[Rfam]
RNA sequence: GUACAGUGAUGACAAUCUUAGGACACCUUUAGAGGCUGUGACCUAUGAAACUAACAUCUGUUUUCCUACCUGAGUACG
Numbered sequence: 001g002u003a004c005a006g007u008g009a010u011g012a013c014a015a016u017c018u019u020a021g022g023a024c025a026c027c028u029u030u031a032g033a034g035g036c037u038g039u040g041a042c043c044u045a046u047g048a049a050a051c052u053a054a055c056a057u058c059u060g061u062u063u064u065c066c067u068a069c070c071u072g073a074g075u076a077c078g
Stems, first nucleotide, its partner, number of pairs: 001077004
This 78-nucleotide RNA from Hucho hucho belongs to the Rfam family "Small nucleolar RNA SNORD58". A search with the family's covariance model found it, with a score of 44 bits. It is annotated as a C/D-box small nucleolar RNA. Its family is annotated with nucleolus and RNA processing in the Gene Ontology. For this family Rfam cites "Purified box C/D snoRNPs are able to reproduce site-specific 2'-O-methylation of target RNA in vitro" (Galardi et al., Mol Cell Biol, 2002). snoRNA U58 is found in introns 1, 3 and 6 of the ribosomal protein RPL17 gene in humans. The source organism's lineage runs through Eukaryota, Opisthokonta, Protacanthopterygii, Salmoninae and Hucho. Pairs were carried over by alignment from the consensus structure, which was predicted with PFOLD.